[Rfam]
RNA: Lysine riboswitch aptamer
Organism: Roseburia sp. AM16-25
RNA sequence: UAAAAAGGUAGAGGUUGCGUAAUUCAUUAGUAAUUCACAGGAUGUGGCAGGCACAGUGGAGUGUGAAGGAAAGGGAGGCACGCCGAAAGGAUACGUCUUCUGCGGAUGUUUUCUUGGGCGCAAGUUUAAUAGGCUUGUGACUGUCAUCUCGUAAGAGAUGGGGAGCUAUCAUGGAU
Numbered sequence: 001u002a003a004a005a006a007g008g009u010a011g012a013g014g015u016u017g018c019g020u021a022a023u024u025c026a027u028u029a030g031u032a033a034u035u036c037a038c039a040g041g042a043u044g045u046g047g048c049a050g051g052c053a054c055a056g057u058g059g060a061g062u063g064u065g066a067a068g069g070a071a072a073g074g075g076a077g078g079c080a081c082g083c084c085g086a087a088a089g090g091a092u093a094c095g096u097c098u099u100c101u102g103c104g105g106a107u108g109u110u111u112u113c114u115u116g117g118g119c120g121c122a123a124g125u126u127u128a129a130u131a132g133g134c135u136u137g138u139g140a141c142u143g144u145c146a147u148c149u150c151g152u153a154a155g156a157g158a159u160g161g162g163g164a165g166c167u168a169u170c171a172u173g174g175a176u
Base pairs, nucleotide, nucleotide: 007170008169009168010167011166017083018082019081020080023077024076025075034067035066036065037064038063039062087115088114089113090112091111093109094108095107096106097105098104116142117141119139120138121137122136123135124134125133126132144161145160146159147158148157149156150155